[Rfam]
Notes
Alphaproteobacterial sRNA BjrC1505: a 147-nucleotide RNA sequence from Methylobacterium sp. Leaf93. On this family, see Madhugiri et al., RNA Biol 2012: "Small RNAs of the Bradyrhizobium/Rhodopseudomonas lineage and their analysis".
RNA sequence: GGUCGGCGUUAGCCGUGCAUUAACCUUUUCAGCUUAUGAAGGAAUCAUGUCCGGUUUUCCGGAUGUGGGGCAGAUUUCGAUCUGCCGCUGUUUUUGAUGCCUCUGUCGACUUUAUCAAAGCCGCCCCUCCCGGGCGGCUUUUUUUUC
Numbered sequence: 001g002g003u004c005g006g007c008g009u010u011a012g013c014c015g016u017g018c019a020u021u022a023a024c025c026u027u028u029u030c031a032g033c034u035u036a037u038g039a040a041g042g043a044a045u046c047a048u049g050u051c052c053g054g055u056u057u058u059c060c061g062g063a064u065g066u067g068g069g070g071c072a073g074a075u076u077u078c079g080a081u082c083u084g085c086c087g088c089u090g091u092u093u094u095u096g097a098u099g100c101c102u103c104u105g106u107c108g109a110c111u112u113u114a115u116c117a118a119a120g121c122c123g124c125c126c127c128u129c130c131c132g133g134g135c136g137g138c139u140u141u142u143u144u145u146u147c
Base pairs, nucleotide, nucleotide: 001046002045003044006014016038017037021036022035023034025032026031050063051062052061053060067088069086070085071084072083073082096107097106098105099104117141118140119139120138121137122136123135124134125133126132

A search with the family's covariance model found it, with a score of 54 bits.